This 103-nucleotide RNA sequence from Carpinus fangiana belongs to the Rfam family "Small nucleolar RNA R30/Z108".
Pairs were carried over by alignment from the consensus structure, which was predicted with PFOLD.
Rfam 15.1 lists 626 matches to the family in 219 species.
From the family's description: snoR30 is a C/D box small nucleolar RNA which acts as a methylation guide for 18S ribosomal RNA in plants.
Taxonomically the source falls in Carpinus (Eukaryota, Streptophytina, Embryophyta, fabids).
RNA sequence: GAAGGUUACGAUGAGGAUACUUAGCUCCCUCUUCUGAAUUCAAAGUUUGAAGAGAGAUGGCUGGCAGAAUCGAACCUAAAACUUUAAAGCCACCACUGAGUAA
Numbered sequence: 001g002a003a004g005g006u007u008a009c010g011a012u013g014a015g016g017a018u019a020c021u022u023a024g025c026u027c028c029c030u031c032u033u034c035u036g037a038a039u040u041c042a043a044a045g046u047u048u049g050a051a052g053a054g055a056g057a058u059g060g061c062u063g064g065c066a067g068a069a070u071c072g073a074a075c076c077u078a079a080a081a082c083u084u085u086a087a088a089g090c091c092a093c094c095a096c097u098g099a100g101u102a103a
Base pairs, nucleotide, nucleotide: 006103007102008101009100

Notes: A reference for the family is Marker et al. (2002), "Experimental RNomics. Identification of 140 Candidates for Small Non-Messenger RNAs in the Plant Arabidopsis thaliana", Curr Biol.